ARRPOF RNA: a 257-nucleotide RNA sequence. The family's RNA type in Rfam is small RNA.

RNA sequence: AAAAAUCUUACUAUUAUAUUUGUAUCAAAAUUUGUAUAAGGGUUUUAUAACUUAUACAGCCAUUCUGCUCGAAAUGGUGUAGCAUUGGAAACAAUGGUACUACGAAUUGUAGCAAGGUGCUGGGCGACCUAAAACGGCUCUGGAGGUGCUCUGAGUGGGUACUUUAUUAGGGUUAUAAUUUAGAAAGUAAGCUAAAACUCUAGGUGUUGGGCAGGGCUAACACUGGCAUAUAGUUAAAUAUAUGCGAUAAAGUAAGC
Numbered sequence: 001a002a003a004a005a006u007c008u009u010a011c012u013a014u015u016a017u018a019u020u021u022g023u024a025u026c027a028a029a030a031u032u033u034g035u036a037u038a039a040g041g042g043u044u045u046u047a048u049a050a051c052u053u054a055u056a057c058a059g060c061c062a063u064u065c066u067g068c069u070c071g072a073a074a075u076g077g078u079g080u081a082g083c084a085u086u087g088g089a090a091a092c093a094a095u096g097g098u099a100c101u102a103c104g105a106a107u108u109g110u111a112g113c114a115a116g117g118u119g120c121u122g123g124g125c126g127a128c129c130u131a132a133a134a135c136g137g138c139u140c141u142g143g144a145g146g147u148g149c150u151c152u153g154a155g156u157g158g159g160u161a162c163u164u165u166a167u168u169a170g171g172g173u174u175a176u177a178a179u180u181u182a183g184a185a186a187g188u189a190a191g192c193u194a195a196a197a198c199u200c201u202a203g204g205u206g207u208u209g210g211g212c213a214g215g216g217c218u219a220a221c222a223c224u225g226g227c228a229u230a231u232a233g234u235u236a237a238a239u240a241u242a243u244g245c246g247a248u249a250a251a252g253u254a255a256g257c
Base pairs, nucleotide, nucleotide: 007191008190009189010188011187012186033058034057035056036055037054038053039052040051060077061076062075063074064073079100080099081098083096084095085094086093087092115130116129117128118127122140123139124138125137148217149216150215151214152213153212160254161253162252163251164250165249166248167247168246169201170200171199172198173197179196180195181194182193183192203224204223205222206221207220208219226245227244228243229242230241231240